[Rfam]
A member of the RNA family "Streptomyces sRNA 4677", 254 nucleotides long. It is annotated as a small RNA. Rfam's curators write: Located in the intergenic region between anti-sigma factor SCO4677 gene and a putative regulatory protein gene SCO4676. scr4677 expression requires the SCO4677 activity and scr4677 sRNA itself seem to affect the levels of the SCO4676-associated transcripts.
RNA sequence: CGCUCCGGUCCGACCUGCGCUCCCCAAUAACCACCCACGGAAGAGAAAGCACCCCCACCAAACCCCACCCCUCCCUCCCGCCGGGCAAACUCACUCCCGCGAGUGAAUAUGCGCAACUGGACUGGAUUCGGGCCCGGUUGCCUGCUCUAGGCUCAGCGCGAGCAGCACCACACAACCCCAGACAUGCGACGGCCCCCGCCGGGACUGGCAUCCCAGUGCGAGGGCCUGACCACCGAGGAAGUAGGAGCUUCCCG
Numbered sequence: 001c002g003c004u005c006c007g008g009u010c011c012g013a014c015c016u017g018c019g020c021u022c023c024c025c026a027a028u029a030a031c032c033a034c035c036c037a038c039g040g041a042a043g044a045g046a047a048a049g050c051a052c053c054c055c056c057a058c059c060a061a062a063c064c065c066c067a068c069c070c071c072u073c074c075c076u077c078c079c080g081c082c083g084g085g086c087a088a089a090c091u092c093a094c095u096c097c098c099g100c101g102a103g104u105g106a107a108u109a110u111g112c113g114c115a116a117c118u119g120g121a122c123u124g125g126a127u128u129c130g131g132g133c134c135c136g137g138u139u140g141c142c143u144g145c146u147c148u149a150g151g152c153u154c155a156g157c158g159c160g161a162g163c164a165g166c167a168c169c170a171c172a173c174a175a176c177c178c179c180a181g182a183c184a185u186g187c188g189a190c191g192g193c194c195c196c197c198g199c200c201g202g203g204a205c206u207g208g209c210a211u212c213c214c215a216g217u218g219c220g221a222g223g224g225c226c227u228g229a230c231c232a233c234c235g236a237g238g239a240a241g242u243a244g245g246a247g248c249u250u251c252c253c254g
Base pairs, nucleotide, nucleotide: 007234008233009232017077019075091106092105093104094103095102096101122156123155124154125153191226192225193224194223195222197220198219199218201214202213203212204211237252238251239250240249241248